This 97-nucleotide sequence from Eragrostis curvula belongs to the Rfam family "Small nucleolar RNA Z43". It is annotated as a C/D-box small nucleolar RNA. The family's consensus secondary structure was predicted with PFOLD. On this family, see Chen et al., Nucleic Acids Res 2003: "The high diversity of snoRNAs in plants: identification and comparative study of 120 snoRNA genes from Oryza sativa". The source organism's lineage runs through Eukaryota, Magnoliopsida, Eragrostideae, Eragrostidinae and Eragrostis.
RNA sequence: GGACGGUGACGAUUGUAUCUUUGGUCUCGUUCGUCGUAACUGGCAUCUGUUUGCCUUGCCGACCAUUCUGAUAUAUCACCACCCAUAUUCUGAGUCC
Numbered sequence: 001g002g003a004c005g006g007u008g009a010c011g012a013u014u015g016u017a018u019c020u021u022u023g024g025u026c027u028c029g030u031u032c033g034u035c036g037u038a039a040c041u042g043g044c045a046u047c048u049g050u051u052u053g054c055c056u057u058g059c060c061g062a063c064c065a066u067u068c069u070g071a072u073a074u075a076u077c078a079c080c081a082c083c084c085a086u087a088u089u090c091u092g093a094g095u096c097c
Stems, first nucleotide, its partner, number of pairs: 001097004045057001
Dot-bracket structure: ((((........................................(...........)....................................))))